[Rfam]
Rfam assigns this 102-nucleotide RNA from Cerasibacillus quisquiliarum to the family "Purine riboswitch aptamer". Rfam's curators write: Riboswitches are metabolite binding domains within certain messenger RNAs that serve as precision sensors for their corresponding targets. Allosteric rearrangement of mRNA structure is mediated by ligand binding, and this results in modulation of gene expression. A class of riboswitches that selectively recognises guanine and becomes saturated at concentrations as low as 5 nM. In Bacillus subtilis, this mRNA motif is located on at least five separate transcriptional units that together encode 17 genes that are mostly involved in purine transport and purine nucleotide biosynthesis. A search with the family's covariance model found it, with a score of 88 bits. The organism belongs to Cerasibacillus, within Bacteria.
RNA sequence: AUUCAAUUAAACAUUCAUUCUCAUAUAAUGGCGAGAAUAUGGCUCGCGAGUUUCUACCGGUUUGCCGGAAACAAACCGACUAUGAGUAGCUUUUUUGAGAUA
Numbered sequence: 001a002u003u004c005a006a007u008u009a010a011a012c013a014u015u016c017a018u019u020c021u022c023a024u025a026u027a028a029u030g031g032c033g034a035g036a037a038u039a040u041g042g043c044u045c046g047c048g049a050g051u052u053u054c055u056a057c058c059g060g061u062u063u064g065c066c067g068g069a070a071a072c073a074a075a076c077c078g079a080c081u082a083u084g085a086g087u088a089g090c091u092u093u094u095u096u097g098a099g100a101u102a
Base pairs, nucleotide, nucleotide: 018088020086021085022084023083024082025081029049031047032046033045034044035043058078059077060076061075062074063073064072